[Rfam]
A member of the RNA family "L31-Firmicutes ribosomal protein leader", 29 nucleotides long. The sequence is in the family's curated seed alignment.
RNA sequence: CUAUGACUAACAAGUCAUGGCGAAAGGAG
Number, nucleotide and partner (000 for none) at each position: 001c020002u019003a018004u017005g016006a015007c014008u013009a000010a000011c000012a000013a008014g007015u006016c005017a004018u003019g002020g001021c000022g000023a000024a000025a000026g000027g000028a000029g000
The family is grouped with related families in Rfam's "Ribosomal Protein L31 Leader clan".